[Rfam]
RNA sequence: UAAGUCCCGCCUGAUUAAAGUUUAGCCAACAGAUUAGCAGCGAUGUCCGAGGGUAAACCCGGUAACGGGAGUCCGAAGCCGGACAGAGUGAGGAUACAGGCCGUGUGAUUGAGCCCCGAAAAGGGUAUAGUCGUGGACAUUGGAUAAGCUCUUAAAGCAAGAGCAAAAGCCGACACCGUGGAGUGUGUGGAAGGCAGCAGACCUUGCAGCGAUAUGGCGAGCAGCAGGGUUUCCACCGGGGUCUGAGAGCA
Numbered sequence: 001u002a003a004g005u006c007c008c009g010c011c012u013g014a015u016u017a018a019a020g021u022u023u024a025g026c027c028a029a030c031a032g033a034u035u036a037g038c039a040g041c042g043a044u045g046u047c048c049g050a051g052g053g054u055a056a057a058c059c060c061g062g063u064a065a066c067g068g069g070a071g072u073c074c075g076a077a078g079c080c081g082g083a084c085a086g087a088g089u090g091a092g093g094a095u096a097c098a099g100g101c102c103g104u105g106u107g108a109u110u111g112a113g114c115c116c117c118g119a120a121a122a123g124g125g126u127a128u129a130g131u132c133g134u135g136g137a138c139a140u141u142g143g144a145u146a147a148g149c150u151c152u153u154a155a156a157g158c159a160a161g162a163g164c165a166a167a168a169g170c171c172g173a174c175a176c177c178g179u180g181g182a183g184u185g186u187g188u189g190g191a192a193g194g195c196a197g198c199a200g201a202c203c204u205u206g207c208a209g210c211g212a213u214a215u216g217g218c219g220a221g222c223a224g225c226a227g228g229g230u231u232u233c234c235a236c237c238g239g240g241g242u243c244u245g246a247g248a249g250c251a
Base pairs, nucleotide, nucleotide: 012036013035014034015033016032020030021029022028023220025218026217040089041088044085045084046083047082049079051074052073053072054071058069059068060067061066110245111243113242114241115240116239117238118237133236134235135234136233137232169195170194171193174189175188176187200231201230202229203228204227205226206225207224209222210221
Rfam assigns this 251-nucleotide RNA sequence from Desulfonema limicola to the family "Group II catalytic intron D1-D4-6". From the family's description: Group II introns are found in rRNA, tRNA and mRNA of organelles in fungi, plants and protists, and also in mRNA in bacteria. Rfam links the family to the GO term Group II intron splicing. Rfam 15.1 lists 1,617 matches to the family in 661 species. The match comes from Rfam's covariance-model search (111 bits). Taxonomically the source falls in Desulfonema (Bacteria, Pseudomonadati, Desulfobacteria, Desulfococcaceae).